[Rfam]
A member of the RNA family "tRNA" from Fusarium poae, 101 nucleotides long. Pairs were carried over by alignment from the consensus structure, which is taken from published work. The organism belongs to Fusarium sambucinum species complex, within Eukaryota. A search with the family's covariance model found it, with a score of 51 bits.
RNA sequence: GACAACGUGGCCGAGUGGUUAAGGCGAUGCCCUGCUAUUUCUCCCAAGAACUAUCAUAGGCAUUGUGUUCGCACGCGUAGGUUCGAAUCCUGCCGUUGUCG
Numbered sequence: 001g002a003c004a005a006c007g008u009g010g011c012c013g014a015g016u017g018g019u020u021a022a023g024g025c026g027a028u029g030c031c032c033u034g035c036u037a038u039u040u041c042u043c044c045c046a047a048g049a050a051c052u053a054u055c056a057u058a059g060g061c062a063u064u065g066u067g068u069u070c071g072c073a074c075g076c077g078u079a080g081g082u083u084c085g086a087a088u089c090c091u092g093c094c095g096u097u098g099u100c101g
Stems, first nucleotide, its partner, number of pairs: 001100007010025003027063005077093005
Dot-bracket structure: (((((((..(((..........))).(((((...........................))))).............(((((.......)))))))))))).